RNA sequence: CUCUUAUCAAGAGUGGUGGAGGGAAAGGCCCUGUGAAACCCAGCAACCUUCAAACAACGUGUUUGAAACGGUGCUAAGACCUGCAGAACAAAUUGUUCUGAAUGAUGAGAG
Numbered sequence: 001c002u003c004u005u006a007u008c009a010a011g012a013g014u015g016g017u018g019g020a021g022g023g024a025a026a027g028g029c030c031c032u033g034u035g036a037a038a039c040c041c042a043g044c045a046a047c048c049u050u051c052a053a054a055c056a057a058c059g060u061g062u063u064u065g066a067a068a069c070g071g072u073g074c075u076a077a078g079a080c081c082u083g084c085a086g087a088a089c090a091a092a093u094u095g096u097u098c099u100g101a102a103u104g105a106u107g108a109g110a111g
Base pairs, nucleotide, nucleotide: 001111002110003109004108005107006106007105008104013041015040016039017038021031022030023029026082027081028080042075043074044073045072047071048070049067050066051065052064053063054062079103084100085099086098087097088096089095
The family of this 111-nucleotide RNA is "SAM riboswitch aptamer (S box leader)". A search with the family's covariance model found it, with a score of 100 bits.